[Rfam]
RNA: Burkholderia sRNA 39
Organism: Trinickia soli
RNA sequence: GUAUUGUGGGGACCACCUCCCUUGAGAGGUGUUAGGCAGUAGCCAGCGCAACGAAAAGCACACGAGUCUAGACCCCCGCGUGCGCCCUUUAGCGUCGUUGCAGCCAGCCAUGCCGCCUUUUUCG
Numbered sequence: 001g002u003a004u005u006g007u008g009g010g011g012a013c014c015a016c017c018u019c020c021c022u023u024g025a026g027a028g029g030u031g032u033u034a035g036g037c038a039g040u041a042g043c044c045a046g047c048g049c050a051a052c053g054a055a056a057a058g059c060a061c062a063c064g065a066g067u068c069u070a071g072a073c074c075c076c077c078g079c080g081u082g083c084g085c086c087c088u089u090u091a092g093c094g095u096c097g098u099u100g101c102a103g104c105c106a107g108c109c110a111u112g113c114c115g116c117c118u119u120u121u122u123c124g
Stems, first nucleotide, its partner, number of pairs: 006116004010109002014031006035044003046104002049100006058083003063080002066077001